[Rfam]
RNA sequence: AAAACUAUUAUAGCGCCAGAACUUAAUAAGUUGACGAGGACAGAGUUAUCGAAAAUUCGGCGGACGCUCUGCGGUGCAGCUUCAUCGAUAUGGUUUUUAUAAAUACAUCCGGCGACGGAUGCGACAGAGGAAAACCAAUAGCUUAAA
Numbered sequence: 001a002a003a004a005c006u007a008u009u010a011u012a013g014c015g016c017c018a019g020a021a022c023u024u025a026a027u028a029a030g031u032u033g034a035c036g037a038g039g040a041c042a043g044a045g046u047u048a049u050c051g052a053a054a055a056u057u058c059g060g061c062g063g064a065c066g067c068u069c070u071g072c073g074g075u076g077c078a079g080c081u082u083c084a085u086c087g088a089u090a091u092g093g094u095u096u097u098u099a100u101a102a103a104u105a106c107a108u109c110c111g112g113c114g115a116c117g118g119a120u121g122c123g124a125c126a127g128a129g130g131a132a133a134a135c136c137a138a139u140a141g142c143u144u145a146a147a
Base pairs, nucleotide, nucleotide: 020032021031022030023029024028041071042070043069044068045067049060050059051058052057072087073086074085075084076083091137092136093135094134095133096132097131106121107120108119109118110117111116
Shown here is a 147-nucleotide RNA sequence from Sedimentibacter hydroxybenzoicus, a member of the family "glmS glucosamine-6-phosphate activated ribozyme aptamer".
Rfam classes the family as a riboswitch.
Lineage of the source: Bacteria > Bacillati > Tissierellia > Sedimentibacter > Sedimentibacter hydroxybenzoicus.
Its family is annotated with catalytic activity and regulation of gene expression in the Gene Ontology.
About the family: This entry contains a glucosamine-6-phosphate activated ribozyme that is found in the mRNA for GlmS. GlmS is an enzyme that uses fructose-6-phosphate and glutamine to generate glucosamine-6-phosphate. The ribozyme catalyses self cleavage of the glmS mRNA that is thought to regulate GlmS activity.